[Rfam]
RNA sequence: CGAGCCGGCCGGGCGGCCGCGGUGUGGGGAACCAUCGGUGGGUAUCGAUGUGCCCGACACCGAGGAAAGUCCGGACUCCACAGAGCAGGGUGGUUGCUAACGACAACCCGGGGUGACCCGCGGGACAGUGCCACAGAGAACAGACCGCCGACCCGUUGCUCGCAACGGCGUCGGUGAGGGUGAAACGGUGCGGUAAGAGCGCACCAGCGCCGCGGGUGACCGCGGCGGCUCGGUAAACCCCACCCGGAGCAAGGUCGAAGGUCGCACCGUCCGCGGUGCGGCUGCGCAGGUGUCGGAGGGCUGCUCGCCCGAGCCUGCGGGUGGACCGCUCGAGGUACCCGGUGACGGUGUGCCCAGAUGGAUGGCCGCCGCCGACCCCUGUGGUCGGCACAGGAUCCGGCUUACAGGCCGACUCGUUCG
Numbered sequence: 001c002g003a004g005c006c007g008g009c010c011g012g013g014c015g016g017c018c019g020c021g022g023u024g025u026g027g028g029g030a031a032c033c034a035u036c037g038g039u040g041g042g043u044a045u046c047g048a049u050g051u052g053c054c055c056g057a058c059a060c061c062g063a064g065g066a067a068a069g070u071c072c073g074g075a076c077u078c079c080a081c082a083g084a085g086c087a088g089g090g091u092g093g094u095u096g097c098u099a100a101c102g103a104c105a106a107c108c109c110g111g112g113g114u115g116a117c118c119c120g121c122g123g124g125a126c127a128g129u130g131c132c133a134c135a136g137a138g139a140a141c142a143g144a145c146c147g148c149c150g151a152c153c154c155g156u157u158g159c160u161c162g163c164a165a166c167g168g169c170g171u172c173g174g175u176g177a178g179g180g181u182g183a184a185a186c187g188g189u190g191c192g193g194u195a196a197g198a199g200c201g202c203a204c205c206a207g208c209g210c211c212g213c214g215g216g217u218g219a220c221c222g223c224g225g226c227g228g229c230u231c232g233g234u235a236a237a238c239c240c241c242a243c244c245c246g247g248a249g250c251a252a253g254g255u256c257g258a259a260g261g262u263c264g265c266a267c268c269g270u271c272c273g274c275g276g277u278g279c280g281g282c283u284g285c286g287c288a289g290g291u292g293u294c295g296g297a298g299g300g301c302u303g304c305u306c307g308c309c310c311g312a313g314c315c316u317g318c319g320g321g322u323g324g325a326c327c328g329c330u331c332g333a334g335g336u337a338c339c340c341g342g343u344g345a346c347g348g349u350g351u352g353c354c355c356a357g358a359u360g361g362a363u364g365g366c367c368g369c370c371g372c373c374g375a376c377c378c379c380u381g382u383g384g385u386c387g388g389c390a391c392a393g394g395a396u397c398c399g400g401c402u403u404a405c406a407g408g409c410c411g412a413c414u415c416g417u418u419c420g
Base pairs, nucleotide, nucleotide: 001416002415003414004413006411007410008409009408010407011405012370013369014368015367016366017365018364020062021061022060023059024058025057027055028054067403068402069401071400072399073398074397075396076249077248078247079246083306084305085304086303088245089244090243091242092241093107094106095105096104108122109120110119111118112117123240124239128238129237130234131233132232145179146178147175148174149173150172151171152170154168187205188204189203190202191201192200207229208227209226210225211224212223213222214221215220253327254326255325256324286318287317288316289315290314291313298310299309300308301307334353339348340347341346